The record is a 590-nucleotide part of an RNA from Winmispira thermophila, which matches "Bacterial small subunit ribosomal RNA" in Rfam. The sequence is in the family's curated seed alignment. Its family is annotated with structural constituent of ribosome and ribosome in the Gene Ontology.
RNA sequence: UGACGGGGGCCCGCACAAGCGGUGGAGCAUGUGGUUUAAUUCGAUGAUACGCGAGGAACCUUACCAGGGCUUGACAUCUACCGGGCGGCUGCAGAGAUGCAGCUUCCCCGCGAGGGGCUGGUAGACAGGUGCUGCAUGGCUGUCGUCAGCUCGUGCCGUGAGGUGUUGGGUUAAGUCCCGCAACGAGCGCAACCCCUGCCGUCUGUUGCCAUCGGGUGAAGCCGGGCACUCAGGCGGGACUGCCGGUGACAAACCGGAGGAAGGUGGGGAUGACGUCAAGUCAUCAUGGCCCUGAUGCCCUGGGCUACACACGUGCUACAAUGGCCGGUACAGAGGGAGGCGAAGCCGCGAGGCGGAGCAAAUCCCAGAAAGCCGGUCUCAGUACGGAUUGGAGUCUGAAACCCGACUCCAUGAAGGUGGAAUCGCUAGUAAUCGCGCAUCAGCCAUGGCGCGGUGAAUGCGUUCCCGGGCCUUGUACACACCGCCCGUCACACCACCCGAGUCGGGGGUACCCGAAGCCGGUAGCCUAACCCGUAAGGGAGGGCGCCGUCGAAGGUACGCCUGGUGAGGGGGGUGAAGUCGUAACAAGG
Numbered sequence: 001u002g003a004c005g006g007g008g009g010c011c012c013g014c015a016c017a018a019g020c021g022g023u024g025g026a027g028c029a030u031g032u033g034g035u036u037u038a039a040u041u042c043g044a045u046g047a048u049a050c051g052c053g054a055g056g057a058a059c060c061u062u063a064c065c066a067g068g069g070c071u072u073g074a075c076a077u078c079u080a081c082c083g084g085g086c087g088g089c090u091g092c093a094g095a096g097a098u099g100c101a102g103c104u105u106c107c108c109c110g111c112g113a114g115g116g117g118c119u120g121g122u123a124g125a126c127a128g129g130u131g132c133u134g135c136a137u138g139g140c141u142g143u144c145g146u147c148a149g150c151u152c153g154u155g156c157c158g159u160g161a162g163g164u165g166u167u168g169g170g171u172u173a174a175g176u177c178c179c180g181c182a183a184c185g186a187g188c189g190c191a192a193c194c195c196c197u198g199c200c201g202u203c204u205g206u207u208g209c210c211a212u213c214g215g216g217u218g219a220a221g222c223c224g225g226g227c228a229c230u231c232a233g234g235c236g237g238g239a240c241u242g243c244c245g246g247u248g249a250c251a252a253a254c255c256g257g258a259g260g261a262a263g264g265u266g267g268g269g270a271u272g273a274c275g276u277c278a279a280g281u282c283a284u285c286a287u288g289g290c291c292c293u294g295a296u297g298c299c300c301u302g303g304g305c306u307a308c309a310c311a312c313g314u315g316c317u318a319c320a321a322u323g324g325c326c327g328g329u330a331c332a333g334a335g336g337g338a339g340g341c342g343a344a345g346c347c348g349c350g351a352g353g354c355g356g357a358g359c360a361a362a363u364c365c366c367a368g369a370a371a372g373c374c375g376g377u378c379u380c381a382g383u384a385c386g387g388a389u390u391g392g393a394g395u396c397u398g399a400a401a402c403c404c405g406a407c408u409c410c411a412u413g414a415a416g417g418u419g420g421a422a423u424c425g426c427u428a429g430u431a432a433u434c435g436c437g438c439a440u441c442a443g444c445c446a447u448g449g450c451g452c453g454g455u456g457a458a459u460g461c462g463u464u465c466c467c468g469g470g471c472c473u474u475g476u477a478c479a480c481a482c483c484g485c486c487c488g489u490c491a492c493a494c495c496a497c498c499c500g501a502g503u504c505g506g507g508g509g510u511a512c513c514c515g516a517a518g519c520c521g522g523u524a525g526c527c528u529a530a531c532c533c534g535u536a537a538g539g540g541a542g543g544g545c546g547c548c549g550u551c552g553a554a555g556g557u558a559c560g561c562c563u564g565g566u567g568a569g570g571g572g573g574g575u576g577a578a579g580u581c582g583u584a585a586c587a588a589g590g
Stems, first nucleotide, its partner, number of pairs: 001479002003476003007473007015463002019426005024319001026317008034308002040055004064303007077125002080122005087104007106117004128292002131290004137286002139281003142277001144275002149188006155164003167180004194269004199237007209226002213224003240260002243257005323378007335366003340359002345354003385416001390411007432455007482589001484586001487582002492576004497571003502566006509559005518551001520549004525545004531540002
Taxonomically the source falls in Winmispira thermophila (Bacteria, Pseudomonadati, Spirochaetia, Winmispira).